The record is a 124-nucleotide RNA from Glycine max, which matches "Small nucleolar RNA SNORD14" in Rfam.

[Rfam]
RNA sequence: ACUCGAUGAUGAUAAAUCUAAAGGCUUGUUUCUCUAAACAUUCGCAGUGGCCGACCAAGAGCUUUCGCCUUCGCCAGGCUUGAGAGCUAAUGCUGCCAUUAUCCUUCCUUGGAUGUCUGAGAGU
Number, nucleotide and partner (000 for none) at each position: 001a124002c123003u122004c121005g000006a000007u000008g000009a000010u000011g000012a000013u000014a000015a000016a000017u000018c000019u000020a000021a000022a000023g000024g000025c000026u000027u000028g000029u000030u000031u000032c000033u000034c000035u000036a000037a000038a000039c000040a000041u000042u000043c000044g000045c000046a000047g000048u000049g000050g000051c000052c000053g000054a000055c000056c000057a000058a000059g000060a000061g087062c086063u085064u084065u083066c082067g000068c000069c000070u000071u000072c000073g000074c000075c000076a000077g000078g000079c000080u000081u000082g066083a065084g064085a063086g062087c061088u000089a000090a000091u000092g000093c000094u000095g000096c000097c000098a000099u000100u000101a000102u000103c000104c000105u000106u000107c000108c000109u000110u000111g000112g000113a000114u000115g000116u000117c000118u000119g000120a000121g004122a003123g002124u001

Background:
The source organism's lineage runs through Eukaryota, Tracheophyta, Gunneridae, Glycine and Glycine subgen. Soja. Rfam describes the family as follows. U14 small nucleolar RNA (U14 snoRNA) is required for early cleavages of eukaryotic precursor rRNAs. In yeasts, this molecule possess a stem-loop region (known as the Y-domain) which is essential for function. A similar structure, but with a different consensus sequence, is found in plants, but is absent in vertebrates. Pairs were carried over by alignment from the consensus structure, which was predicted with PFOLD. Rfam classes the family as a C/D-box small nucleolar RNA. Its family is annotated with nucleolus and RNA processing in the Gene Ontology.